[Rfam]
RNA sequence: CGAGAUGAAAUCAACGUUUGGACAUGUGAUUUCAAGUUGAUUUCAUCUCUUG
Numbered sequence: 001c002g003a004g005a006u007g008a009a010a011u012c013a014a015c016g017u018u019u020g021g022a023c024a025u026g027u028g029a030u031u032u033c034a035a036g037u038u039g040a041u042u043u044c045a046u047c048u049c050u051u052g
Base pairs, nucleotide, nucleotide: 002049003048004047005046006045007044008043009042010041011040012039013038014037015036017034018029019028020027
The family of this 52-nucleotide RNA sequence from Solanum commersonii is "MIR1886 microRNA precursor family". Rfam links the family to the GO terms RISC complex and miRNA-mediated post-transcriptional gene silencing. NCBI's taxonomy places the organism under Eukaryota, Streptophyta, Streptophytina, Spermatophyta, Solanum.